[Rfam]
Background: This 173-nucleotide RNA sequence from Clostridium acetireducens belongs to the Rfam family "Lysine riboswitch aptamer". Lineage of the source: Bacteria > Clostridia > Clostridiaceae > Clostridium > Clostridium acetireducens.
RNA sequence: GUACCUCGUAGAGGUGCUGUAAUUAAGAGUAUUUAUAAGGAGUCGACAGGCAAUGAUGUAUAAAGAAAGGAAUUACAGCCGAAGAAAAUAAUGUGUAAAAUUAUUUUCUGGCUUUACAUAUAAUAUGUGUAAAGCUGUCACCAAUAAUAUAAAGGUGGAGUGCUAUAAGGUUC
Numbered sequence: 001g002u003a004c005c006u007c008g009u010a011g012a013g014g015u016g017c018u019g020u021a022a023u024u025a026a027g028a029g030u031a032u033u034u035a036u037a038a039g040g041a042g043u044c045g046a047c048a049g050g051c052a053a054u055g056a057u058g059u060a061u062a063a064a065g066a067a068a069g070g071a072a073u074u075a076c077a078g079c080c081g082a083a084g085a086a087a088a089u090a091a092u093g094u095g096u097a098a099a100a101u102u103a104u105u106u107u108c109u110g111g112c113u114u115u116a117c118a119u120a121u122a123a124u125a126u127g128u129g130u131a132a133a134g135c136u137g138u139c140a141c142c143a144a145u146a147a148u149a150u151a152a153a154g155g156u157g158g159a160g161u162g163c164u165a166u167a168a169g170g171u172u173c
Base pairs, nucleotide, nucleotide: 006168008166009165010164011163016079017078018077019076020075021074022073023072024071032064033063034062035061036060037059039057083109084108085107086106087105088104089103090102091101092100094098110136111135112134113133114132115131116130117129118128119127120126138158139157140156141155142154
Dot-bracket structure: .....(.((((....(((((((((.......((((((.(.................).))))))......)))))))))...((((((((((.(...).))))))))))(((((((((((.....))))))))))).(((((...........)))))....)))).).....